[Rfam]
RNA sequence: GAAAAUGCGGGUGAAAAACCCGCACACCGUAAGUCCAAGGGUUCCCGGGCAAGGAUAAUCCUCCCGGGGUCAGUCGGGAUCUAAGACGAGGCCGAGAGGCGUAGCCGAUGACAACCAGGUGAACAUUCCUGGACCCUCCGAUAAGCGUCACGACCGACGCGGCGACGCAUGGGAAUUCACGGGGCGGCCGAUGGAUGCCGCUGAAGGAGUGCGAGUCGCUGGGGCGGCAAAUCCCCCCAGCACAUGACCCAGGCUCCGGACCCCCGGAAGGCUUCGGCCGGAAGGGGCGCCGCGAUGGACCGUGCCAGGAAAAACCGCUAAGGGAGCGAACGGAGGCCCGUACCGUAAACCGACACAGGUGGACGAGGCGAAUAGCCUAAGGUGCU
Numbered sequence: 001g002a003a004a005a006u007g008c009g010g011g012u013g014a015a016a017a018a019c020c021c022g023c024a025c026a027c028c029g030u031a032a033g034u035c036c037a038a039g040g041g042u043u044c045c046c047g048g049g050c051a052a053g054g055a056u057a058a059u060c061c062u063c064c065c066g067g068g069g070u071c072a073g074u075c076g077g078g079a080u081c082u083a084a085g086a087c088g089a090g091g092c093c094g095a096g097a098g099g100c101g102u103a104g105c106c107g108a109u110g111a112c113a114a115c116c117a118g119g120u121g122a123a124c125a126u127u128c129c130u131g132g133a134c135c136c137u138c139c140g141a142u143a144a145g146c147g148u149c150a151c152g153a154c155c156g157a158c159g160c161g162g163c164g165a166c167g168c169a170u171g172g173g174a175a176u177u178c179a180c181g182g183g184g185c186g187g188c189c190g191a192u193g194g195a196u197g198c199c200g201c202u203g204a205a206g207g208a209g210u211g212c213g214a215g216u217c218g219c220u221g222g223g224g225c226g227g228c229a230a231a232u233c234c235c236c237c238c239a240g241c242a243c244a245u246g247a248c249c250c251a252g253g254c255u256c257c258g259g260a261c262c263c264c265c266g267g268a269a270g271g272c273u274u275c276g277g278c279c280g281g282a283a284g285g286g287g288c289g290c291c292g293c294g295a296u297g298g299a300c301c302g303u304g305c306c307a308g309g310a311a312a313a314a315c316c317g318c319u320a321a322g323g324g325a326g327c328g329a330a331c332g333g334a335g336g337c338c339c340g341u342a343c344c345g346u347a348a349a350c351c352g353a354c355a356c357a358g359g360u361g362g363a364c365g366a367g368g369c370g371a372a373u374a375g376c377c378u379a380a381g382g383u384g385c386u
Stems, first nucleotide, its partner, number of pairs: 006024006025384004033364004039344002044068006053061002075340004080111002085106001087104001089102001091100003115132005135336006142329001146328003154323002159318004167305004178294001180292003183202006203261001207256004215248002218241007226234002263287002270279003350359002366378004
RNA: Bacterial large subunit ribosomal RNA, nucleotides 1267 to 1652